The record is a 58-nucleotide RNA from Doona zeylanica, which matches "Plastid-psbA-3 3UTR RNA" in Rfam. The family's consensus secondary structure was predicted with LocARNA. The organism belongs to Doona, within Eukaryota. Rfam's curators put it in the seed alignment. It is annotated as a cis-regulatory element. Plastid psbA-3 is a non-coding RNA (ncRNA) present in plastids. For this family Rfam cites "Retrograde signaling in plants: A critical review focusing on the GUN pathway and beyond" (Richter et al., Plant Commun, 2023).
RNA sequence: AAAGGAGCAAUAUCCAAAUUCUUGUUCUAUCAAGAGUAUUGGUAUUGCUCCUUUUUUU
Numbered sequence: 001a002a003a004g005g006a007g008c009a010a011u012a013u014c015c016a017a018a019u020u021c022u023u024g025u026u027c028u029a030u031c032a033a034g035a036g037u038a039u040u041g042g043u044a045u046u047g048c049u050c051c052u053u054u055u056u057u058u
Stems, first nucleotide, its partner, number of pairs: 001054014019036006